[Rfam]
The family of this 37-nucleotide sequence from Scyliorhinus torazame is "Iron response element I".
NCBI's taxonomy places the organism under Eukaryota, Craniata, Selachii, Scyliorhinidae, Scyliorhinus.
The literature on the family includes a 2008 paper in J Biol Chem by Sammarco et al., "Ferritin L and H subunits are differentially regulated on a post-transcriptional level".
Nucleotides: 037
Base pairs, nucleotide, nucleotide: 002036003035005034006033007032008031009030011029013028014027015026016025017024018022
Number, partner (000 for none) and nucleotide at each position: 001000c002036a003035g004000u005034g006033u007032u008031c009030c010000u011029g012000c013028u014027u015026c016025a017024a018022c019000a020000g021000u022018g023000a024017u025016u026015g027014a028013a029011c030009g031008g032007a033006a034005c035003c036002u037000u